[Rfam]
RNA sequence: GGAGACUUGAGGGAAGCUGCUUCUAGUACGAGAGGACCGAAGUGGACAAACCUCUGGUGUUUCGGUUGUGACGCCAGUCGCAUUGCCGAGUAGCUAUGUUUGGAAAGGAUAACCGCUGAAAGCAUCUAAGCGGGAAGCCCCUCCCAAGAUUAGGUCUCCCUGGAUAUUUAAUAUCCCUAAAGAUCCCUCGAAGACUACGAGGUUGAUAGGCAAGGUGUGGAAGCGCAGUGAUGUGUGAAGCUAACUUGUACUAAUUGAUCGUGAG
Numbered sequence: 001g002g003a004g005a006c007u008u009g010a011g012g013g014a015a016g017c018u019g020c021u022u023c024u025a026g027u028a029c030g031a032g033a034g035g036a037c038c039g040a041a042g043u044g045g046a047c048a049a050a051c052c053u054c055u056g057g058u059g060u061u062u063c064g065g066u067u068g069u070g071a072c073g074c075c076a077g078u079c080g081c082a083u084u085g086c087c088g089a090g091u092a093g094c095u096a097u098g099u100u101u102g103g104a105a106a107g108g109a110u111a112a113c114c115g116c117u118g119a120a121a122g123c124a125u126c127u128a129a130g131c132g133g134g135a136a137g138c139c140c141c142u143c144c145c146a147a148g149a150u151u152a153g154g155u156c157u158c159c160c161u162g163g164a165u166a167u168u169u170a171a172u173a174u175c176c177c178u179a180a181a182g183a184u185c186c187c188u189c190g191a192a193g194a195c196u197a198c199g200a201g202g203u204u205g206a207u208a209g210g211c212a213a214g215g216u217g218u219g220g221a222a223g224c225g226c227a228g229u230g231a232u233g234u235g236u237g238a239a240g241c242u243a244a245c246u247u248g249u250a251c252u253a254a255u256u257g258a259u260c261g262u263g264a265g
Stems, first nucleotide, its partner, number of pairs: 001159008011145004017045007047102005055096003062089005067082006107139002113133005162176005179262001182260004186202005207253003210249005217241001223236005
RNA: Bacterial large subunit ribosomal RNA, nucleotides 2618 to 2882
Organism: Bathymodiolus septemdierum thioautotrophic gill symbiont